[Rfam]
RNA: Singlet oxygen resistance RNA X
Organism: Rubellimicrobium sp. CFH 75288
RNA sequence: AGCACUCGAAGACGACGACGCUUCGCGCUCAUCAUCUUCAACCUCCCUGUUGGACUUCGCCGGGCCAUUGCGCCCGGCGUUUUUU
Numbered sequence: 001a002g003c004a005c006u007c008g009a010a011g012a013c014g015a016c017g018a019c020g021c022u023u024c025g026c027g028c029u030c031a032u033c034a035u036c037u038u039c040a041a042c043c044u045c046c047c048u049g050u051u052g053g054a055c056u057u058c059g060c061c062g063g064g065c066c067a068u069u070g071c072g073c074c075c076g077g078c079g080u081u082u083u084u085u
Stems, first nucleotide, its partner, number of pairs: 008039005014033001058079008
Dot-bracket structure: .......(((((.(..................).)))))..................((((((((......))))))))......